[Rfam]
RNA sequence: GCACGUUCUCAGGGCGGGGCGAAAUUCCCCUCCGGCGGUAAUGGCACGCAAUGUGUCUAGCCCGCGAGCGCUUGUCGAGCACCCGAUUUUGGUGCCGCGAUAAGGUCAGCAGACUCGGUGUGAUCCCGAGGCCGACGGUUAUAGUCCGGAUAAAGAGAGAGCGGGA
Numbered sequence: 001g002c003a004c005g006u007u008c009u010c011a012g013g014g015c016g017g018g019g020c021g022a023a024a025u026u027c028c029c030c031u032c033c034g035g036c037g038g039u040a041a042u043g044g045c046a047c048g049c050a051a052u053g054u055g056u057c058u059a060g061c062c063c064g065c066g067a068g069c070g071c072u073u074g075u076c077g078a079g080c081a082c083c084c085g086a087u088u089u090u091g092g093u094g095c096c097g098c099g100a101u102a103a104g105g106u107c108a109g110c111a112g113a114c115u116c117g118g119u120g121u122g123a124u125c126c127c128g129a130g131g132c133c134g135a136c137g138g139u140u141a142u143a144g145u146c147c148g149g150a151u152a153a154a155g156a157g158a159g160a161g162c163g164g165g166a
Stems, first nucleotide, its partner, number of pairs: 004163007017029003032144001033134002035065004060132002068110002114130005136148003
FMN riboswitch aptamer (RFN element): a 166-nucleotide RNA from Glaciimonas immobilis. Pairs were carried over by alignment from the consensus structure, which is taken from published work. The match comes from Rfam's covariance-model search (98 bits).